[Rfam]
RNA: Small nucleolar RNA Z43
RNA sequence: GGACAGUGACGAUUGAUAUUAAGGUCUCGUUCGUCGUAAUUGGCUUUAUUAGCCUUGCCGACCACUCUGUUAUAUCACCACCCAUAUUCUGAGUCC
Numbered sequence: 001g002g003a004c005a006g007u008g009a010c011g012a013u014u015g016a017u018a019u020u021a022a023g024g025u026c027u028c029g030u031u032c033g034u035c036g037u038a039a040u041u042g043g044c045u046u047u048a049u050u051a052g053c054c055u056u057g058c059c060g061a062c063c064a065c066u067c068u069g070u071u072a073u074a075u076c077a078c079c080a081c082c083c084a085u086a087u088u089c090u091g092a093g094u095c096c
Base pairs, nucleotide, nucleotide: 001096002095003094004093046051